[Rfam]
RNA sequence: GCCUGUUCUCCCGGGGGUCGCGCUUGAGCGGCUGAGAUAGAGGUGUCCCUCUGACCGGUCGAACCUGAUCCGGGUCAUGCCGGCGAAGGGACGGGAACGGGCGGCCCUC
Numbered sequence: 001g002c003c004u005g006u007u008c009u010c011c012c013g014g015g016g017g018u019c020g021c022g023c024u025u026g027a028g029c030g031g032c033u034g035a036g037a038u039a040g041a042g043g044u045g046u047c048c049c050u051c052u053g054a055c056c057g058g059u060c061g062a063a064c065c066u067g068a069u070c071c072g073g074g075u076c077a078u079g080c081c082g083g084c085g086a087a088g089g090g091a092c093g094g095g096a097a098c099g100g101g102c103g104g105c106c107c108u109c
Base pairs, nucleotide, nucleotide: 006097007096008095009094010093011058012057013056014055017032018031019030020029021028039052040051041050042049043048064089065088066087070083071082072081073080
The family of this 109-nucleotide sequence from Brevundimonas abyssalis is "TPP riboswitch aptamer (THI element)".
Taxonomically the source falls in Brevundimonas abyssalis (Bacteria, Caulobacterales, Caulobacteraceae, Brevundimonas).
A search with the family's covariance model found it, with a score of 67 bits.
The family's consensus secondary structure is taken from published work.